Rfam assigns this 132-nucleotide RNA from Zophobihabitans entericus to the family "Ribosomal S15 leader". From the family's description: The E. coli Ribosomal S15 gene 5' UTR can form two alternative structures.

[Rfam]
RNA sequence: GGGAACUACUGAAUUAGAGAUCGGGGUUCUCGUUUAUUUACUUACAUAUCUUUAUAGAUAGUUUAGGAGUUUAUUAUGUCUCUAAGCGCAGAAGUUGUAGCAAAAAUUGUUGCCGAGUAUGGCCGUGAUGCA
Numbered sequence: 001g002g003g004a005a006c007u008a009c010u011g012a013a014u015u016a017g018a019g020a021u022c023g024g025g026g027u028u029c030u031c032g033u034u035u036a037u038u039u040a041c042u043u044a045c046a047u048a049u050c051u052u053u054a055u056a057g058a059u060a061g062u063u064u065a066g067g068a069g070u071u072u073a074u075u076a077u078g079u080c081u082c083u084a085a086g087c088g089c090a091g092a093a094g095u096u097g098u099a100g101c102a103a104a105a106a107u108u109g110u111u112g113c114c115g116a117g118u119a120u121g122g123c124c125g126u127g128a129u130g131c132a
Base pairs, nucleotide, nucleotide: 007026009024010023011022012021050086051085052084066083067082068081069080
Overview
The family's consensus secondary structure is taken from published work. It scores 74 bits against the family's covariance model. NCBI's taxonomy places the organism under Bacteria, Pseudomonadota, Gammaproteobacteria, Orbales, Zophobihabitans. Clan: Ribosomal Protein S15 Leader clan. Its family is annotated with regulation of translation, ncRNA-mediated in the Gene Ontology.